[Rfam]
RNA sequence: ACUAUAUAAAGAUAUGUGACUACAAGAUAGGUUAGUAUCUCCCUUUAUAGUAUUUUAAAAACGAAACUUGUUGUUGUUUUUGUUGCGUAACUGUAUUUGAAUUAUAAUAGUAAGACUAUAGAUGUUAUUUGAGUACAUUGAAACAAGUUCAAGGCAAGUGGAUAUAGGGUAACCGUCCGUCCUUUACAUAGGUAUAAAAGAGAUCUGAAAGGUUGUUUAUAAUAAUUUAUAAAUUUUAGUGGCGGUGUU
Numbered sequence: 001a002c003u004a005u006a007u008a009a010a011g012a013u014a015u016g017u018g019a020c021u022a023c024a025a026g027a028u029a030g031g032u033u034a035g036u037a038u039c040u041c042c043c044u045u046u047a048u049a050g051u052a053u054u055u056u057a058a059a060a061a062c063g064a065a066a067c068u069u070g071u072u073g074u075u076g077u078u079u080u081u082g083u084u085g086c087g088u089a090a091c092u093g094u095a096u097u098u099g100a101a102u103u104a105u106a107a108u109a110g111u112a113a114g115a116c117u118a119u120a121g122a123u124g125u126u127a128u129u130u131g132a133g134u135a136c137a138u139u140g141a142a143a144c145a146a147g148u149u150c151a152a153g154g155c156a157a158g159u160g161g162a163u164a165u166a167g168g169g170u171a172a173c174c175g176u177c178c179g180u181c182c183u184u185u186a187c188a189u190a191g192g193u194a195u196a197a198a199a200g201a202g203a204u205c206u207g208a209a210a211g212g213u214u215g216u217u218u219a220u221a222a223u224a225a226u227u228u229a230u231a232a233a234u235u236u237u238a239g240u241g242g243c244g245g246u247g248u249u
Stems, first nucleotide, its partner, number of pairs: 001051006008044001010040006017034005022028001066159007079147006090139001093136010166183005172246006178200001185194003205239006213231001
Rfam assigns this 249-nucleotide RNA sequence to the family "IS605-orfB-I RNA". The sequence is in the family's curated seed alignment. The family's RNA type in Rfam is small RNA.